[Rfam]
RNA sequence: CCAAAGGCUCUUUUAAGAGCCACCCACUUCUGCUCCAAAAGUGCA
Dot-bracket structure: .....((((((....))))))........................
RNA: Histone 3' UTR stem-loop